[Rfam]
The family of this 90-nucleotide RNA sequence from Granulicella sp. 5B5 is "tRNA". A search with the family's covariance model found it, with a score of 57 bits.

RNA sequence: GGAGAGUUGGCCGAGAGGCUGAAGGCGGCGGUUUGCUAAACCGUUAUAGGAUCAAAAGUUCUAUCGGGGGUUCGAAUCCCCCACUCUCCG
Dot-bracket structure: (((((((..(((...........))).(((((.......))))).....................(((((.......)))))))))))).
Background:
The family's RNA type in Rfam is transfer RNA. Lineage of the source: Bacteria > Pseudomonadati > Acidobacteriota > Terriglobales > Granulicella. The family's consensus secondary structure is taken from published work.